[Rfam]
RNA sequence: GGUAUAGUAGGUCUACCGCAAUCGGUGAGUAAGGGGAGGUUUCAAACCGCCUCUCGGUGCUGUUUUGGUAACGAAACUGUGUUGAAGGGAAGAAGGAAAAGAUCCAGAUUGUAUGGAAACAGGU
Dot-bracket structure: ((((..(.....)))))(.((((..(........)..)))).)....(.((((((((.((..((((......))))..)).)).....).))).))....(.((((.......))))..)..).
Numbered sequence: 001g002g003u004a005u006a007g008u009a010g011g012u013c014u015a016c017c018g019c020a021a022u023c024g025g026u027g028a029g030u031a032a033g034g035g036g037a038g039g040u041u042u043c044a045a046a047c048c049g050c051c052u053c054u055c056g057g058u059g060c061u062g063u064u065u066u067g068g069u070a071a072c073g074a075a076a077c078u079g080u081g082u083u084g085a086a087g088g089g090a091a092g093a094a095g096g097a098a099a100a101g102a103u104c105c106a107g108a109u110u111g112u113a114u115g116g117a118a119a120c121a122g123g124u
Stems, first nucleotide, its partner, number of pairs: 001017004007013001018043001020041004026035001048123001050096002052093003055089001056083002059080002063076004101120001103117004
The family of this 124-nucleotide RNA sequence from Cyclobacterium marinum is "Group II catalytic intron D1-D4-2". The base pairs follow the family's consensus structure. For this family Rfam cites "The ins and outs of group II introns" (Bonen and Vogel, Trends Genet, 2001). Rfam's curators write: Group II introns are found in rRNA, tRNA and mRNA of organelles in fungi, plants and protists, and also in mRNA in bacteria.